[Rfam]
This 80-nucleotide RNA sequence from Chanos chanos belongs to the Rfam family "mir-19 microRNA precursor family". A reference for the family is Lagos-Quintana et al. (2001), "Identification of novel genes coding for small expressed RNAs", Science. The family's consensus secondary structure was predicted with RNAalifold. The match comes from Rfam's covariance-model search (72 bits).
RNA sequence: AGCUCUGGUCAGUUUUGCUGGUUUGCAUUCCGCUUUGUGUGAGUGUUGGUGUGCAAAUCCAUGCAAAACUGACCAUGGCA
Numbered sequence: 001a002g003c004u005c006u007g008g009u010c011a012g013u014u015u016u017g018c019u020g021g022u023u024u025g026c027a028u029u030c031c032g033c034u035u036u037g038u039g040u041g042a043g044u045g046u047u048g049g050u051g052u053g054c055a056a057a058u059c060c061a062u063g064c065a066a067a068a069c070u071g072a073c074c075a076u077g078g079c080a
Base pairs, nucleotide, nucleotide: 003078004077006075007074008073009072010071011070012069013068014067015066016065017064018063020060021059022057023056024055025054026053027052028051033048